[Rfam]
RNA sequence: AUACUCGGGUAAUCGCUGCGCAGUUAUACUACGCAGAGGAAAGUCCAUGCUCGCACAAACUGAGAUGUUUGUAGUGUUCGUGCUUGACGAAAUCAUAAGUCAAGGGAGUUCAUCAGAACUCACGGCAGGGAAAAUCCCUAAGUCUAUGAUAAGGGAUGACUACCUUGAAAGUGCCACAGUGACGGAGCCGGAGUAGAAAUACUUCGGGUGGAACGAGGUAAACCCCACGAGCGAGCAACCCAAAUAUAGGUAGGGGCACUUUUCAAUGGGAAUUCAACCAGAGAAGAGGCCGUUUAGCGGCAGAUAGAUGAUUGCCACCGGAGUACGAGGUUGACCACCGUUUGCAGUACAAUGGCACAGAACAUGGCUUACAGAG
Numbered sequence: 001a002u003a004c005u006c007g008g009g010u011a012a013u014c015g016c017u018g019c020g021c022a023g024u025u026a027u028a029c030u031a032c033g034c035a036g037a038g039g040a041a042a043g044u045c046c047a048u049g050c051u052c053g054c055a056c057a058a059a060c061u062g063a064g065a066u067g068u069u070u071g072u073a074g075u076g077u078u079c080g081u082g083c084u085u086g087a088c089g090a091a092a093u094c095a096u097a098a099g100u101c102a103a104g105g106g107a108g109u110u111c112a113u114c115a116g117a118a119c120u121c122a123c124g125g126c127a128g129g130g131a132a133a134a135u136c137c138c139u140a141a142g143u144c145u146a147u148g149a150u151a152a153g154g155g156a157u158g159a160c161u162a163c164c165u166u167g168a169a170a171g172u173g174c175c176a177c178a179g180u181g182a183c184g185g186a187g188c189c190g191g192a193g194u195a196g197a198a199a200u201a202c203u204u205c206g207g208g209u210g211g212a213a214c215g216a217g218g219u220a221a222a223c224c225c226c227a228c229g230a231g232c233g234a235g236c237a238a239c240c241c242a243a244a245u246a247u248a249g250g251u252a253g254g255g256g257c258a259c260u261u262u263u264c265a266a267u268g269g270g271a272a273u274u275c276a277a278c279c280a281g282a283g284a285a286g287a288g289g290c291c292g293u294u295u296a297g298c299g300g301c302a303g304a305u306a307g308a309u310g311a312u313u314g315c316c317a318c319c320g321g322a323g324u325a326c327g328a329g330g331u332u333g334a335c336c337a338c339c340g341u342u343u344g345c346a347g348u349a350c351a352a353u354g355g356c357a358c359a360g361a362a363c364a365u366g367g368c369u370u371a372c373a374g375a376g
Stems, first nucleotide, its partner, number of pairs: 004376003007372001008316007016036005041370003045367005050235005055072006078230005083104006105123001106121006124225002127165003135156004142150003171223002173219003188207008239255003259288006289301005318355003323350004
RNA: Bacterial RNase P class B
Organism: Halobacillus karajensis